[Rfam]
RNA sequence: GAGGCCUCCGACUUGACACAACAUCCUGCAGCGGUGUUGUGCGACCUGCAGUGUCAGUCGAAGACCUC
Numbered sequence: 001g002a003g004g005c006c007u008c009c010g011a012c013u014u015g016a017c018a019c020a021a022c023a024u025c026c027u028g029c030a031g032c033g034g035u036g037u038u039g040u041g042c043g044a045c046c047u048g049c050a051g052u053g054u055c056a057g058u059c060g061a062a063g064a065c066c067u068c
Stems, first nucleotide, its partner, number of pairs: 001068004006063002009060005020038006043055003
Rfam assigns this 68-nucleotide RNA sequence from Talaromyces islandicus to the family "bZIP non canonical Hac1/Xbp1 intron". bZIP intron RNA is a non-canonical intron that was first reported in HAC1 gene in yeast and XBP1 gene in Metazoa. The literature on the family includes a 2011 paper in RNA Biol by Hooks and Griffiths-Jones, "Conserved RNA structures in the non-canonical Hac1/Xbp1 intron". It scores 58 bits against the family's covariance model.